The family of this 41-nucleotide sequence from Trichechus manatus is "XIST RNA A repeat". The family's consensus secondary structure was predicted with CMfinder.

[Rfam]
RNA sequence: UCGCCCAUCGGGGCUGUGGAUACUUGCCUUUUAAUAUUUUU
Dot-bracket structure: ..((((....))))..(((....)))...............